[Rfam]
RNA: mir-9195 microRNA precursor family
RNA sequence: AGAGGUCCUCCGUGGCCGGGGUGGAAUGCUUGCCUUGUCACCGCGGCGAUGAAGCAAGCAUUCCGCCAGGCCGCUCACACUGCCAAC
Numbered sequence: 001a002g003a004g005g006u007c008c009u010c011c012g013u014g015g016c017c018g019g020g021g022u023g024g025a026a027u028g029c030u031u032g033c034c035u036u037g038u039c040a041c042c043g044c045g046g047c048g049a050u051g052a053a054g055c056a057a058g059c060a061u062u063c064c065g066c067c068a069g070g071c072c073g074c075u076c077a078c079a080c081u082g083c084c085a086a087c
Stems, first nucleotide, its partner, number of pairs: 004084003012074006020067014037050003041046001